[Rfam]
The record is a 256-nucleotide RNA sequence from Olsenella profusa, which matches "raiA RNA" in Rfam.
By type it is a riboswitch.
Nucleotides: 256
Stems, first nucleotide, its partner, number of pairs: 001256003005252005012247003015241004054227003057067001060119006076113002086103001088101001090099003111234001132220005137170005174213004183205002189198003
Number, partner (000 for none) and nucleotide at each position: 001256u002255c003254c004000g005252u006251u007250c008249a009248g010000g011000u012247c013246u014245g015241u016240g017239g018238u019000u020000g021000c022000g023000g024000g025000u026000g027000g028000c029000g030000c031000g032000c033000u034000u035000u036000g037000g038000c039000a040000g041000g042000u043000c044000u045000c046000c047000c048000u049000a050000g051000u052000c053000c054227a055226u056225g057067g058000c059000a060119g061118a062117c063116g064115a065114g066000g067057u068000c069000a070000a071000a072000a073000g074000g075000a076113u077112c078000c079000a080000c081000g082000u083000a084000a085000g086103c087000c088101g089000g090099g091098c092097g093000u094000g095000a096000g097092c098091g099090u100000g101088c102000c103086g104000g105000c106000g107000a108000g109000c110000a111234u112077g113076g114065c115064u116063c117062g118061u119060c120000c121000u122000a123000g124000a125000a126000g127000c128000a129000a130000g131000u132220c133219g134218u135217a136216c137170c138169g139168u140167c141166c142000g143000c144000g145000g146000c147000u148000g149000g150000g151000g152000g153000c154000a155000u156000c157000u158000g159000g160000c161000c162000c163000c164000a165000c166141g167140g168139g169138c170137g171000a172000g173000a174213g175212g176211g177210c178000c179000g180000a181000u182000a183205g184204u185000g186000g187000g188000g189198g190197g191196c192000c193000g194000u195000a196191g197190c198189c199000c200000c201000g202000a203000a204184g205183c206000g207000a208000a209000g210177g211176c212175u213174c214000c215000c216136g217135u218134a219133c220132g221000c222000g223000a224000g225056u226055g227054u228000g229000g230000g231000g232000u233000c234111a235000a236000a237000u238018a239017c240016c241015a242000g243000g244000u245014c246013a247012g248009c249008u250007g251006g252005a253000g254003g255002g256001a
The organism belongs to Olsenella profusa, within Bacteria.